[Rfam]
RNA sequence: AAAAGUGUGAGGAGGCAGUAUACGAGGUCUGUCUGUUCAUAACGAAGAACGUUGAGGUAUAUAAAAAUCAAUGGCCGAGAUAUCGUUUCAGUCGUCAUUUUUCCUCCAUUGACGGUCUGAUUGUUGCUCGUCCACAC
Numbered sequence: 001a002a003a004a005g006u007g008u009g010a011g012g013a014g015g016c017a018g019u020a021u022a023c024g025a026g027g028u029c030u031g032u033c034u035g036u037u038c039a040u041a042a043c044g045a046a047g048a049a050c051g052u053u054g055a056g057g058u059a060u061a062u063a064a065a066a067a068u069c070a071a072u073g074g075c076c077g078a079g080a081u082a083u084c085g086u087u088u089c090a091g092u093c094g095u096c097a098u099u100u101u102u103c104c105u106c107c108a109u110u111g112a113c114g115g116u117c118u119g120a121u122u123g124u125u126g127c128u129c130g131u132c133c134a135c136a137c
Stems, first nucleotide, its partner, number of pairs: 006041006014033005073133002076130004082121004091116007099108001
The family of this 137-nucleotide RNA from Gossypium arboreum is "Small nucleolar RNA snoR111". Lineage of the source: Eukaryota > Viridiplantae > Streptophyta > rosids > Gossypium. It is annotated as an H/ACA-box small nucleolar RNA.